Shown here is a 599-nucleotide part of an RNA from Mucor saturninus, a member of the family "Eukaryotic small subunit ribosomal RNA".
[Rfam]
RNA sequence: AGUCAUAUGCUUGUCUCAAAGAUUAAGCCAUGCAUGUCUAAGUAUAAACAAAUUCUAUACUGUGAAACUGCGAAUGGCUCAUUAAAUCAGUUAUGAUCUACAUGACAAUUCAUUACUACUUGGAUAACCGUGGUAAUUCUAGAGCUAAUACAUGCAACAAAAGCCUCGACUUCGGAAGGGGUGCACUUAUUAGGUAAAAGCCAACCUGGUGUUAAAGCCAGUUUUUUGGUGAUUCAUAAUAAUUCAAUGCUGAUCGCAUGGCCUUGUGCUGGCGACGGUUCAUUCGAUUUUCUGCCCUAUCAGGUUAAGAUUGUAAGAUAGAGGCUUACAUUGCCUACCACGGGUAACGGGGAAUUAGGGUUCGAUUCCGGAGAGGGAGCCUGAGAAACGGCUACCACAUCCAAGGAAGGCAGCAGGCGCGCAAAUUACCCAAUCCCAAUUCGGGGAGGUAGUGACAAUAAAUAACAAUGCAGGGCCUUUUAGGUCUUGCAAUUGGAAUGAGUACAAUUUAAAUCCCUUAACGAGGAUCUAUUGGAGGGCAAGUCUGGUGCCAGCAGCCGCGGUAAUUCCAGCUCCAAGAGCGUAUAUUAAAGUUGUUG
Numbered sequence: 001a002g003u004c005a006u007a008u009g010c011u012u013g014u015c016u017c018a019a020a021g022a023u024u025a026a027g028c029c030a031u032g033c034a035u036g037u038c039u040a041a042g043u044a045u046a047a048a049c050a051a052a053u054u055c056u057a058u059a060c061u062g063u064g065a066a067a068c069u070g071c072g073a074a075u076g077g078c079u080c081a082u083u084a085a086a087u088c089a090g091u092u093a094u095g096a097u098c099u100a101c102a103u104g105a106c107a108a109u110u111c112a113u114u115a116c117u118a119c120u121u122g123g124a125u126a127a128c129c130g131u132g133g134u135a136a137u138u139c140u141a142g143a144g145c146u147a148a149u150a151c152a153u154g155c156a157a158c159a160a161a162a163g164c165c166u167c168g169a170c171u172u173c174g175g176a177a178g179g180g181g182u183g184c185a186c187u188u189a190u191u192a193g194g195u196a197a198a199a200g201c202c203a204a205c206c207u208g209g210u211g212u213u214a215a216a217g218c219c220a221g222u223u224u225u226u227u228g229g230u231g232a233u234u235c236a237u238a239a240u241a242a243u244u245c246a247a248u249g250c251u252g253a254u255c256g257c258a259u260g261g262c263c264u265u266g267u268g269c270u271g272g273c274g275a276c277g278g279u280u281c282a283u284u285c286g287a288u289u290u291u292c293u294g295c296c297c298u299a300u301c302a303g304g305u306u307a308a309g310a311u312u313g314u315a316a317g318a319u320a321g322a323g324g325c326u327u328a329c330a331u332u333g334c335c336u337a338c339c340a341c342g343g344g345u346a347a348c349g350g351g352g353a354a355u356u357a358g359g360g361u362u363c364g365a366u367u368c369c370g371g372a373g374a375g376g377g378a379g380c381c382u383g384a385g386a387a388a389c390g391g392c393u394a395c396c397a398c399a400u401c402c403a404a405g406g407a408a409g410g411c412a413g414c415a416g417g418c419g420c421g422c423a424a425a426u427u428a429c430c431c432a433a434u435c436c437c438a439a440u441u442c443g444g445g446g447a448g449g450u451a452g453u454g455a456c457a458a459u460a461a462a463u464a465a466c467a468a469u470g471c472a473g474g475g476c477c478u479u480u481u482a483g484g485u486c487u488u489g490c491a492a493u494u495g496g497a498a499u500g501a502g503u504a505c506a507a508u509u510u511a512a513a514u515c516c517c518u519u520a521a522c523g524a525g526g527a528u529c530u531a532u533u534g535g536a537g538g539g540c541a542a543g544u545c546u547g548g549u550g551c552c553a554g555c556a557g558c559c560g561c562g563g564u565a566a567u568u569c570c571a572g573c574u575c576c577a578a579g580a581g582c583g584u585a586u587a588u589u590a591a592a593g594u595u596g597u598u599g
Stems, first nucleotide, its partner, number of pairs: 001589003005586007014460001016458001020453001021420001027418003031415003036071002041069003048063002078373003088294003093289001097287002103282003119154001121152002128144001131141003163182005170175001187242006200230004208218001210216001254275004259271004296344003303335003310332001312330006348370004352363004375396002378393003398409001400407002426451001428450003434446004466495003469491010502522002504519001506518001532578006545572004554561002
The organism belongs to Mucor, within Eukaryota. A search with the family's covariance model found it, with a score of 1686 bits. For this family Rfam cites "Crystal structure of the ribosome at 5.5 A resolution" (Yusupov et al., Science, 2001). The family's consensus secondary structure is taken from published work.